[Rfam]
Nucleotides: 077
Base pairs, nucleotide, nucleotide: 012066013065015063016062017061018060019059020058021057024054026052027051028050029049030048031047
Number, partner (000 for none) and nucleotide at each position: 001000c002000u003000c004000c005000u006000c007000g008000g009000c010000u011000c012066c013065u014000g015063c016062a017061u018060u019059g020058u021057a022000c023000a024054c025000a026052c027051u028050g029049u030048g031047c032000g033000g034000a035000a036000a037000a038000c039000a040000u041000g042000g043000a044000c045000a046000u047031g048030c049029a050028c051027a052026g053000c054024g055000c056000a057021u058020a059019c060018a061017a062016u063015g064000u065013g066012g067000a068000u069000g070000c071000u072000g073000u074000g075000g076000a077000g
The family of this 77-nucleotide RNA from Danio rerio is "mir-460 microRNA precursor family".
NCBI's taxonomy places the organism under Eukaryota, Chordata, Craniata, Clupeocephala, Danio.